Rfam assigns this 173-nucleotide sequence from Cohnella pontilimi to the family "FMN riboswitch aptamer (RFN element)".
Taxonomically the source falls in Cohnella (Bacteria, Bacillati, Bacilli, Caryophanales).
The literature on the family includes a 2002 paper in Nucleic Acids Res by Vitreschak et al., "Regulation of riboflavin biosynthesis and transport genes in bacteria by transcriptional and translational attenuation".
The family's consensus secondary structure is taken from published work.
Nucleotides: 173
Base pairs, nucleotide, nucleotide: 003171004170006168007167008166009165010164017029018028019027031153032152033142034141035087036086037085038084091117092116122138123137124136125135126134144156145155146154
Number, partner (000 for none) and nucleotide at each position: 001000g002000c003171u004170u005000a006168c007167c008166u009165u010164c011000g012000g013000g014000g015000c016000g017029g018028g019027g020000c021000g022000c023000a024000a025000u026000u027019c028018c029017c030000c031153a032152c033142c034141g035087g036086c037085g038084g039000u040000g041000a042000u043000c044000g045000g046000c047000a048000a049000g050000c051000g052000c053000g054000u055000a056000c057000g058000a059000u060000g061000a062000g063000g064000u065000u066000c067000g068000a069000a070000g071000c072000g073000c074000g075000g076000c077000c078000g079000u080000c081000a082000g083000u084038c085037c086036g087035u088000g089000a090000c091117c092116c093000g094000g095000c096000u097000c098000u099000u100000c101000c102000u103000u104000c105000g106000u107000g108000g109000a110000a111000g112000a113000u114000a115000c116092g117091g118000u119000g120000g121000a122138c123137c124136c125135g126134g127000u128000g129000c130000a131000a132000c133000u134126c135125c136124g137123g138122g139000a140000c141034c142033g143000a144156c145155a146154g147000u148000a149000a150000c151000a152032g153031u154146c155145u156144g157000g158000a159000u160000g161000g162000g163000a164010g165009a166008a167007g168006g169000a170004a171003g172000c173000g